[Rfam]
RNA sequence: AGUUACUAGGCAGUGUAGUUAGCUGAUUGCUAAUAGUACCAAUCACUAACCACACGGCCAGGUAAAA
Numbered sequence: 001a002g003u004u005a006c007u008a009g010g011c012a013g014u015g016u017a018g019u020u021a022g023c024u025g026a027u028u029g030c031u032a033a034u035a036g037u038a039c040c041a042a043u044c045a046c047u048a049a050c051c052a053c054a055c056g057g058c059c060a061g062g063u064a065a066a067a
Stems, first nucleotide, its partner, number of pairs: 003065004009059002013055004018050005024045006031038001